[Rfam]
RNA sequence: GGUUGGGUUUUUGCAUAAAGCUUUCAAGAAUUGCUUAUUUGGGUCAAUAAGC
Numbered sequence: 001g002g003u004u005g006g007g008u009u010u011u012u013g014c015a016u017a018a019a020g021c022u023u024u025c026a027a028g029a030a031u032u033g034c035u036u037a038u039u040u041g042g043g044u045c046a047a048u049a050a051g052c
Base pairs, nucleotide, nucleotide: 003027004026005025006022007021008020009019010018011017033052034051035050036049037048038047039046
Na+ riboswitch aptamer (DUF1646): a 52-nucleotide RNA sequence from Lactobacillus xujianguonis.
The family's consensus secondary structure is taken from published work.
The match comes from Rfam's covariance-model search (55 bits).
NCBI's taxonomy places the organism under Bacteria, Bacillota, Bacilli, Lactobacillales, Lactobacillus.